[Rfam]
RNA sequence: GAAGUUAACCAGACAGUCGCUGCUUUUUAUAUUCAUUAAAUAGAACAAUAUAUCAAGGGGAGGAAAGUCCGGGCUCCACAGGGUAUGGGUGCCAGGUAACACCUGGGGGGUGAAAAUCCACGACAAGUGCAACAGAAAAAAAACCGCCUUAGCCAAACGGCGUAAUGAGGUAAGGGUGAAAAGGUGCGGUAAGAGCGCACCGCGCAACUGGUAACAGUUCUCGCGGCAUGGUAAACUCCACUCGGAGCAAGGCCAAAUAGGAGUUCACAUAGUGCGGCCCGCACUGAACUCGGGUAGGUCGCUUGAGCCACUACGUGAGUAGUGGUCUAGAUGAAUGACUGUCCACGACAGAACCCGGCUUACGGUUAACUUCAGAA
Numbered sequence: 001g002a003a004g005u006u007a008a009c010c011a012g013a014c015a016g017u018c019g020c021u022g023c024u025u026u027u028u029a030u031a032u033u034c035a036u037u038a039a040a041u042a043g044a045a046c047a048a049u050a051u052a053u054c055a056a057g058g059g060g061a062g063g064a065a066a067g068u069c070c071g072g073g074c075u076c077c078a079c080a081g082g083g084u085a086u087g088g089g090u091g092c093c094a095g096g097u098a099a100c101a102c103c104u105g106g107g108g109g110g111u112g113a114a115a116a117u118c119c120a121c122g123a124c125a126a127g128u129g130c131a132a133c134a135g136a137a138a139a140a141a142a143a144c145c146g147c148c149u150u151a152g153c154c155a156a157a158c159g160g161c162g163u164a165a166u167g168a169g170g171u172a173a174g175g176g177u178g179a180a181a182a183g184g185u186g187c188g189g190u191a192a193g194a195g196c197g198c199a200c201c202g203c204g205c206a207a208c209u210g211g212u213a214a215c216a217g218u219u220c221u222c223g224c225g226g227c228a229u230g231g232u233a234a235a236c237u238c239c240a241c242u243c244g245g246a247g248c249a250a251g252g253c254c255a256a257a258u259a260g261g262a263g264u265u266c267a268c269a270u271a272g273u274g275c276g277g278c279c280c281g282c283a284c285u286g287a288a289c290u291c292g293g294g295u296a297g298g299u300c301g302c303u304u305g306a307g308c309c310a311c312u313a314c315g316u317g318a319g320u321a322g323u324g325g326u327c328u329a330g331a332u333g334a335a336u337g338a339c340u341g342u343c344c345a346c347g348a349c350a351g352a353a354c355c356c357g358g359c360u361u362a363c364g365g366u367u368a369a370c371u372u373c374a375g376a377a
Stems, first nucleotide, its partner, number of pairs: 001373010012343007020060002023057003028052006065361003069358005074247004081280004087243005092106005107121001108119004122238002127236002129232002144175002146171006183201006202227001203225003207221001208217003251300004261291006271285005307326008
RNA: Bacterial RNase P class A
Organism: secondary endosymbiont of Heteropsylla cubana